[Rfam]
Rfam assigns this 80-nucleotide RNA sequence from Eubacterium sp. CAG:156 to the family "S10-Clostridia ribosomal protein leader". Rfam classes the family as a cis-regulatory leader. Pairs were carried over by alignment from the consensus structure, which is taken from published work. The source organism's lineage runs through Bacteria, Bacillati, Bacillota, Clostridia and Eubacterium.
RNA sequence: UGAUAGCGUUGAAACGAGAGGUUGCUACAGUAAUGUAGGUUUUCCGCGGAGCGAAUGUCAAGUUAGGAAACUGGCGACAA
Numbered sequence: 001u002g003a004u005a006g007c008g009u010u011g012a013a014a015c016g017a018g019a020g021g022u023u024g025c026u027a028c029a030g031u032a033a034u035g036u037a038g039g040u041u042u043u044c045c046g047c048g049g050a051g052c053g054a055a056u057g058u059c060a061a062g063u064u065a066g067g068a069a070a071c072u073g074g075c076g077a078c079a080a
Stems, first nucleotide, its partner, number of pairs: 015046002018044004025038005056079004062075004